[Rfam]
RNA sequence: GCGGACGUGGCGGAACUGGUAGACGCAGCGGACUUAAAAUCCGCUUCUCGUUGAGAGUGGGGGUUCGAGUCCCUCCGUCCGCA
Numbered sequence: 001g002c003g004g005a006c007g008u009g010g011c012g013g014a015a016c017u018g019g020u021a022g023a024c025g026c027a028g029c030g031g032a033c034u035u036a037a038a039a040u041c042c043g044c045u046u047c048u049c050g051u052u053g054a055g056a057g058u059g060g061g062g063g064u065u066c067g068a069g070u071c072c073c074u075c076c077g078u079c080c081g082c083a
Stems, first nucleotide, its partner, number of pairs: 001082007010026003028044005059075005
Notes
The family of this 83-nucleotide sequence from Roseospira visakhapatnamensis is "tRNA". The match comes from Rfam's covariance-model search (61 bits). By type it is a transfer RNA. The literature on the family includes a 1993 paper in Trends Biochem Sci by Hou, "The tertiary structure of tRNA and the development of the genetic code". The source organism's lineage runs through Bacteria, Pseudomonadati, Pseudomonadota, Rhodospirillaceae and Roseospira. The base pairs follow the family's consensus structure, which is taken from published work.